[Rfam]
Description:
Glycine riboswitch aptamer: a 107-nucleotide RNA from Cellulosimicrobium funkei.
RNA sequence: CGAACCACGACGGGAGAGCUCGGUACCCGGUCCAGCGGACCGGCGCCGGCGCCGAAGGAGCAAACCCUCCCCGGGAAUCUCUCAGGCCCCCGUACCGUCGAGGUGAG
Numbered sequence: 001c002g003a004a005c006c007a008c009g010a011c012g013g014g015a016g017a018g019c020u021c022g023g024u025a026c027c028c029g030g031u032c033c034a035g036c037g038g039a040c041c042g043g044c045g046c047c048g049g050c051g052c053c054g055a056a057g058g059a060g061c062a063a064a065c066c067c068u069c070c071c072c073g074g075g076a077a078u079c080u081c082u083c084a085g086g087c088c089c090c091c092g093u094a095c096c097g098u099c100g101a102g103g104u105g106a107g
Stems, first nucleotide, its partner, number of pairs: 006102001008100006020049004051087003054083002058081003065073001

Description:
The match comes from Rfam's covariance-model search (62 bits).